[Rfam]
Notes: Rfam assigns this 66-nucleotide RNA from Myotis myotis to the family "mir-290 microRNA precursor family". Its Rfam clan is "mir-290 clan". NCBI's taxonomy places the organism under Eukaryota, Deuterostomia, Chordata, Boreoeutheria, Myotis. A reference for the family is Houbaviy et al. (2003), "Embryonic stem cell-specific MicroRNAs", Dev Cell. Rfam 15.1 lists 565 matches to the family in 128 species.
Nucleotides: 066
Base pairs, nucleotide, nucleotide: 004063006061007060008059009058010057011056012055015052016051017050018049020047021046022045023044024043025042026041028039
Number, partner (000 for none) and nucleotide at each position: 001000g002000u003000g004063g005000a006061g007060c008059u009058c010057a011056a012055a013000c014000a015052g016051u017050g018049g019000c020047g021046g022045c023044a024043c025042u026041u027000g028039c029000u030000c031000u032000c033000a034000g035000c036000a037000c038000a039028g040000a041026a042025a043024g044023u045022g046021c047020c048000c049018c050017c051016a052015c053000a054000g055012u056011u057010u058009g059008a060007g061006u062000c063004c064000c065000a066000c